Shown here is a 78-nucleotide RNA from Manihot esculenta, a member of the family "Small nucleolar RNA Z199". From the family's description: snoZ199 is a C/D box small nucleolar RNA, which acts as a methylation guide RNA for sites on 18S and 25S rRNA. Rice snoZ199 is reported to be homologous to Arabidopsis snoR13. The organism belongs to Manihot, within Eukaryota.
RNA sequence: GGAUCAAGUGAUGAGAAAAUACUGCAACAAUAUGAUGGAUUUAUUCCAUGAUUCAUGGUAUUUAAGUCUCUGAUGGUU
Numbered sequence: 001g002g003a004u005c006a007a008g009u010g011a012u013g014a015g016a017a018a019a020u021a022c023u024g025c026a027a028c029a030a031u032a033u034g035a036u037g038g039a040u041u042u043a044u045u046c047c048a049u050g051a052u053u054c055a056u057g058g059u060a061u062u063u064a065a066g067u068c069u070c071u072g073a074u075g076g077u078u
Base pairs, nucleotide, nucleotide: 001078002077004076005075006074037047038046039045